The family of this 109-nucleotide RNA from Rhizobium johnstonii is "Guanidine-I riboswitch aptamer".
Rfam describes the family as follows. This family represents a conserved RNA structure found upstream of the ykkC and yxkD genes in Bacillus subtilis and related genes in other bacteria. The function of this family is unclear although it has been suggested that it may function to switch on efflux pumps and detoxification systems in response to harmful environmental molecules.

[Rfam]
RNA sequence: AGAGUUGGUGGCUAGGGUUCCGGCGUCGCAAGACGUGGCUGGUCCGAGAGCUGCCACCGGCAGGGGAGACAUCCUGCCGGGUGCACGGCGGGACAAAAGCCCGGGAGAC
Numbered sequence: 001a002g003a004g005u006u007g008g009u010g011g012c013u014a015g016g017g018u019u020c021c022g023g024c025g026u027c028g029c030a031a032g033a034c035g036u037g038g039c040u041g042g043u044c045c046g047a048g049a050g051c052u053g054c055c056a057c058c059g060g061c062a063g064g065g066g067a068g069a070c071a072u073c074c075u076g077c078c079g080g081g082u083g084c085a086c087g088g089c090g091g092g093a094c095a096a097a098a099g100c101c102c103g104g105g106a107g108a109c
Stems, first nucleotide, its partner, number of pairs: 007055006015045002020042002022039001023036005057080009084104001086107001090102003
Annotation:
The organism belongs to Rhizobium johnstonii, within Bacteria.